[Rfam]
RNA sequence: UAGGAGGAUCUGUAAAGCUCAGGAGGGAUAGCGCCAUGGAUAAUGUUGUUCCAGCUUAGCUUUUCUUCAUUUCUUCACUCCAUGAAUGACUGGCGCUAUCUAUCCUGAGUUUCAUAGCUCCUCCUU
Numbered sequence: 001u002a003g004g005a006g007g008a009u010c011u012g013u014a015a016a017g018c019u020c021a022g023g024a025g026g027g028a029u030a031g032c033g034c035c036a037u038g039g040a041u042a043a044u045g046u047u048g049u050u051c052c053a054g055c056u057u058a059g060c061u062u063u064u065c066u067u068c069a070u071u072u073c074u075u076c077a078c079u080c081c082a083u084g085a086a087u088g089a090c091u092g093g094c095g096c097u098a099u100c101u102a103u104c105c106u107g108a109g110u111u112u113c114a115u116a117g118c119u120c121c122u123c124c125u126u
Stems, first nucleotide, its partner, number of pairs: 010117001016111009026101010
Rfam assigns this 126-nucleotide RNA sequence from Ipomoea nil to the family "MIR390 microRNA precursor family". The literature on the family includes a 2005 paper in Genome Res by Adai et al., "Computational prediction of miRNAs in Arabidopsis thaliana". Its family is annotated with miRNA-mediated post-transcriptional gene silencing and RISC complex in the Gene Ontology. The match comes from Rfam's covariance-model search (99 bits). The family has 16 seed sequences and 649 matches in Rfam 15.1.